[Rfam]
Small nucleolar RNA R44/J54/Z268 family: a 93-nucleotide sequence from Papaver nudicaule. NCBI's taxonomy places the organism under Eukaryota, Euphyllophyta, Spermatophyta, Papaveroideae, Papaver. Clan: SNORD74 clan. The family's RNA type in Rfam is C/D-box small nucleolar RNA. A search with the family's covariance model found it, with a score of 81 bits.
RNA sequence: AUUGCAAGUGAUGAUAAAACAGACAGGGACAUCAGAAAUCCUUUUUAAGGAUAAUAAUAUGUUGACAUGUCUUGGGAAUCUCUCUGAUGCAUU
Numbered sequence: 001a002u003u004g005c006a007a008g009u010g011a012u013g014a015u016a017a018a019a020c021a022g023a024c025a026g027g028g029a030c031a032u033c034a035g036a037a038a039u040c041c042u043u044u045u046u047a048a049g050g051a052u053a054a055u056a057a058u059a060u061g062u063u064g065a066c067a068u069g070u071c072u073u074g075g076g077a078a079u080c081u082c083u084c085u086g087a088u089g090c091a092u093u
Stems, first nucleotide, its partner, number of pairs: 003091004